[Rfam]
Rfam assigns this 122-nucleotide RNA sequence from Gilliamella sp. Occ3-1 to the family "Molybdenum/Tungsten riboswitch aptamer (Moco RNA motif)". The base pairs follow the family's consensus structure, which is taken from published work. Lineage of the source: Bacteria > Pseudomonadati > Gammaproteobacteria > Orbales > Gilliamella.
RNA sequence: GACUGAACCAAACUCUGAAGCUUUUUUACCUAAGUGACAUUUUCAUAUGGUGGAUUAGCCGCGGUAUAACGCAGAAAUGGUUAUGCUUCCCGAUUUGGAUAAGGUGUUUAAUGUAUAUAUGC
Numbered sequence: 001g002a003c004u005g006a007a008c009c010a011a012a013c014u015c016u017g018a019a020g021c022u023u024u025u026u027u028a029c030c031u032a033a034g035u036g037a038c039a040u041u042u043u044c045a046u047a048u049g050g051u052g053g054a055u056u057a058g059c060c061g062c063g064g065u066a067u068a069a070c071g072c073a074g075a076a077a078u079g080g081u082u083a084u085g086c087u088u089c090c091c092g093a094u095u096u097g098g099a100u101a102a103g104g105u106g107u108u109u110a111a112u113g114u115a116u117a118u119a120u121g122c
Stems, first nucleotide, its partner, number of pairs: 004115001011108003015104002020059003025054006034046004063087008072079002088098002